The record is a 67-nucleotide RNA from Cnephaeus nilssonii, which matches "mir-9256 microRNA precursor family" in Rfam. The source organism's lineage runs through Eukaryota, Teleostomi, Dipnotetrapodomorpha, Chiroptera and Cnephaeus. The family has 8 seed sequences and 31,772 matches in Rfam 15.1.
RNA sequence: ACUUACACUGAGUGACCAGAUUAUUAUGAUCUCUGAAUGCAUAAAAAUCUGGUCACUCAGUGUAUAU
Number, nucleotide and partner (000 for none) at each position: 001a000002c000003u000004u064005a063006c062007a061008c060009u059010g058011a057012g056013u055014g054015a053016c052017c051018a000019g049020a048021u047022u046023a000024u044025u043026a042027u041028g040029a000030u000031c000032u000033c000034u000035g000036a000037a000038u000039g000040c028041a027042u026043a025044a024045a000046a022047a021048u020049c019050u000051g017052g016053u015054c014055a013056c012057u011058c010059a009060g008061u007062g006063u005064a004065u000066a000067u000
The base pairs follow the family's consensus structure, which was predicted with RNAalifold. It scores 83 bits against the family's covariance model.